[Rfam]
This 95-nucleotide RNA sequence from Nicotiana sylvestris belongs to the Rfam family "MIR6152 microRNA precursor family".
Its family is annotated with miRNA-mediated post-transcriptional gene silencing and RISC complex in the Gene Ontology.
The organism belongs to Nicotiana, within Eukaryota.

RNA sequence: UGGACAGAUUAUUGCAUUCGACUAUAUUUACGGCAUGAAACAGAGUUUUACACUGUUUUAAACGGAAAGUGAAUCAAUUAACAUAAUAGAUUCCU
Number, nucleotide and partner (000 for none) at each position: 001u000002g094003g093004a092005c000006a000007g000008a000009u089010u088011a087012u086013u085014g084015c000016a000017u081018u080019c000020g079021a078022c000023u076024a000025u000026a074027u073028u072029u071030a070031c069032g000033g000034c064035a000036u062037g059038a058039a057040a056041c055042a054043g053044a000045g000046u000047u000048u000049u000050a000051c000052a000053c043054u042055g041056u040057u039058u038059u037060a000061a000062a036063c000064g034065g000066a000067a000068a000069g031070u030071g029072a028073a027074u026075c000076a023077a000078u021079u020080a018081a017082c000083a000084u014085a013086a012087u011088a010089g009090a000091u000092u004093c003094c002095u000
A search with the family's covariance model found it, with a score of 86 bits.